[Rfam]
RNA: SAM-I/IV (S-adenosyl methionine) riboswitch aptamer
RNA sequence: GCAAUGCAUCCAGAUGUGGCUAGUGCCACGCCAACCUGUGCUCCCUCACAAGGUGGUUCUAUGAUGCGGCCCAUUUAGGGCAAACAAGUGGGUUUUA
Numbered sequence: 001g002c003a004a005u006g007c008a009u010c011c012a013g014a015u016g017u018g019g020c021u022a023g024u025g026c027c028a029c030g031c032c033a034a035c036c037u038g039u040g041c042u043c044c045c046u047c048a049c050a051a052g053g054u055g056g057u058u059c060u061a062u063g064a065u066g067c068g069g070c071c072c073a074u075u076u077a078g079g080g081c082a083a084a085c086a087a088g089u090g091g092g093u094u095u096u097a
Stems, first nucleotide, its partner, number of pairs: 006067005017028004030057003035053003038049003043092003069081004